[Rfam]
RNA sequence: UAAGUCCUGUGCCAAGCGGCGAUGAAUUCGUCAAGCUUGCUUGUAAGGAUUCAUCGCCAUUUGGCACGACAACAGAAAUCGAGAAGUAGCGCGAUAGCGCGAAUUCGAGAUUUCUGUAGCAUUGCGAAAGCGUAUGCGAAGCAAUGCGUAGGACUUA
Numbered sequence: 001u002a003a004g005u006c007c008u009g010u011g012c013c014a015a016g017c018g019g020c021g022a023u024g025a026a027u028u029c030g031u032c033a034a035g036c037u038u039g040c041u042u043g044u045a046a047g048g049a050u051u052c053a054u055c056g057c058c059a060u061u062u063g064g065c066a067c068g069a070c071a072a073c074a075g076a077a078a079u080c081g082a083g084a085a086g087u088a089g090c091g092c093g094a095u096a097g098c099g100c101g102a103a104u105u106c107g108a109g110a111u112u113u114c115u116g117u118a119g120c121a122u123u124g125c126g127a128a129a130g131c132g133u134a135u136g137c138g139a140a141g142c143a144a145u146g147c148g149u150a151g152g153a154c155u156u157a
Base pairs, nucleotide, nucleotide: 001157002156003155004154005153006152007151009067010066011065012064015061016060018058019057020056021055022054023053024052025051026050027049028048029047032043033042034041035040073116074115075114076113077112078111079110080109083106084105085104089100090099091098092097119147120146121145122144123143124142125141130137131136
A member of the RNA family "Clostridiales-1 RNA" from Oribacterium sp. C9, 157 nucleotides long.
Pairs were carried over by alignment from the consensus structure, which is taken from published work.
Rfam 15.1 lists 1,172 matches to the family in 137 species.
It scores 97 bits against the family's covariance model.
The source organism's lineage runs through Bacteria, Bacillota, Lachnospirales, Lachnospiraceae and Oribacterium.